[Rfam]
Record summary
Rfam assigns this 113-nucleotide sequence from Modestobacter muralis to the family "SAM (S-adenosyl methionine) riboswitch aptamer". On this family, see Weinberg et al., RNA 2008: "The aptamer core of SAM-IV riboswitches mimics the ligand-binding site of SAM-I riboswitches". The family's consensus secondary structure is taken from published work.
RNA sequence: GGUCCUGAGCGCCAGCGACAAGCCCCGGCUCGCUGGCCGGCAACCCUCCCUGCGACGGGGUGCCCCGGGUGACGACCUGGCCGAGCGCACCCGCGCCCCGGCAAGCAGUGGCC
Numbered sequence: 001g002g003u004c005c006u007g008a009g010c011g012c013c014a015g016c017g018a019c020a021a022g023c024c025c026c027g028g029c030u031c032g033c034u035g036g037c038c039g040g041c042a043a044c045c046c047u048c049c050c051u052g053c054g055a056c057g058g059g060g061u062g063c064c065c066c067g068g069g070u071g072a073c074g075a076c077c078u079g080g081c082c083g084a085g086c087g088c089a090c091c092c093g094c095g096c097c098c099c100g101g102c103a104a105g106c107a108g109u110g111g112c113c
Stems, first nucleotide, its partner, number of pairs: 001077004009038001011037006021030002039064003044060003049054001080102004085096004
SAM-IV is a mRNA element that regulates gene expression via direct sensing of S-adenosylmethionine (SAM or AdoMet). Gene Ontology terms of the family: regulation of gene expression and S-adenosylmethionine metabolic process.